[Rfam]
Nucleotides: 120
Stems, first nucleotide, its partner, number of pairs: 059082004064077001066075002085099002088097003
Number, partner (000 for none) and nucleotide at each position: 001000c002000c003000g004000u005000c006000c007000g008000c009000c010000c011000c012000c013000u014000g015000a016000u017000a018000c019000a020000g021000c022000c023000g024000c025000g026000c027000g028000c029000c030000g031000c032000c033000c034000c035000g036000g037000g038000c039000c040000g041000c042000c043000c044000g045000u046000u047000a048000c049000g050000c051000u052000g053000g054000c055000c056000g057000c058000g059082u060081g061080c062079g063000c064077c065000c066075u067074c068000c069000c070000u071000c072000c073000g074067g075066a076000c077064g078000g079062c080061g081060c082059a083000a084000a085099g086098c087000c088097g089096a090095c091000a092000g093000c094000c095090g096089u097088c098086g099085c100000a101000c102000u103000c104000c105000a106000g107000g108000g109000a110000g111000c112000a113000c114000a115000a116000c117000c118000a119000u120000g
About this RNA
Streptomyces-metH RNA: a 120-nucleotide RNA sequence from Streptomyces hundungensis. The base pairs follow the family's consensus structure, which is taken from published work. It scores 79 bits against the family's covariance model.